RNA sequence: CUUCCGCCUGAUUCAAGUAAUCCAGGAUAGGCUUGUGAUGAUGGGAAGAGCCUAUUCGGGAUAACUUGGUUCAGGAAUGAG
Numbered sequence: 001c002u003u004c005c006g007c008c009u010g011a012u013u014c015a016a017g018u019a020a021u022c023c024a025g026g027a028u029a030g031g032c033u034u035g036u037g038a039u040g041a042u043g044g045g046a047a048g049a050g051c052c053u054a055u056u057c058g059g060g061a062u063a064a065c066u067u068g069g070u071u072c073a074g075g076a077a078u079g080a081g
Base pairs, nucleotide, nucleotide: 002080003079007075008074009073010072011071014068015067016066017065018064020062021061022060025057026056027055028054029053030052031051032050033049